[Rfam]
This 55-nucleotide RNA sequence from Monodelphis domestica belongs to the Rfam family "mir-7398 microRNA precursor family". The family's consensus secondary structure was predicted with RNAalifold. The family has 23 seed sequences and 132 matches in Rfam 15.1. Taxonomically the source falls in Monodelphis (Eukaryota, Craniata, Gnathostomata, Theria).
RNA sequence: UGUAGAGAAUGGUGAGUAUGCUGUUCUCUAUCAGGUAAUUCACCCUUCUCUCACU
Dot-bracket structure: ((.((((((.((...(...(((...........)))...)...))))))))))..